[Rfam]
RNA sequence: CGUCCCGGCCCAGCGCGUGGUCAAUGCUUUAAAGGACCGUGGGGGAAGUACCGACCAAACCCCGCCCCACCCCGCCGACACACCCCCGCGCGCCCGUCACUCGCACGAGUGGCUUUCCCCAACUGGGCUGGAUUUCCGCCCCGUUCGGUGGCAUAUGCUCGCCGCGACCACAACCGCAGACAUGCGACGGCCCCCGGCCGGGACUGGCAUCCCGAUCGAGGGCCUGACCACCGAGGAAGUAGAGCCCCCUUCCCG
Numbered sequence: 001c002g003u004c005c006c007g008g009c010c011c012a013g014c015g016c017g018u019g020g021u022c023a024a025u026g027c028u029u030u031a032a033a034g035g036a037c038c039g040u041g042g043g044g045g046a047a048g049u050a051c052c053g054a055c056c057a058a059a060c061c062c063c064g065c066c067c068c069a070c071c072c073c074g075c076c077g078a079c080a081c082a083c084c085c086c087c088g089c090g091c092g093c094c095c096g097u098c099a100c101u102c103g104c105a106c107g108a109g110u111g112g113c114u115u116u117c118c119c120c121a122a123c124u125g126g127g128c129u130g131g132a133u134u135u136c137c138g139c140c141c142c143g144u145u146c147g148g149u150g151g152c153a154u155a156u157g158c159u160c161g162c163c164g165c166g167a168c169c170a171c172a173a174c175c176g177c178a179g180a181c182a183u184g185c186g187a188c189g190g191c192c193c194c195c196g197g198c199c200g201g202g203a204c205u206g207g208c209a210u211c212c213c214g215a216u217c218g219a220g221g222g223c224c225u226g227a228c229c230a231c232c233g234a235g236g237a238a239g240u241a242g243a244g245c246c247c248c249c250u251u252c253c254c255g
Stems, first nucleotide, its partner, number of pairs: 007232002016090004097112006127163001129161003189224005195218002200213004235253005
Streptomyces sRNA 4677: a 255-nucleotide RNA from Streptomyces sp. Ru71.
The organism belongs to Streptomyces, within Bacteria.
Pairs were carried over by alignment from the consensus structure.
Located in the intergenic region between anti-sigma factor SCO4677 gene and a putative regulatory protein gene SCO4676. scr4677 expression requires the SCO4677 activity and scr4677 sRNA itself seem to affect the levels of the SCO4676-associated transcripts.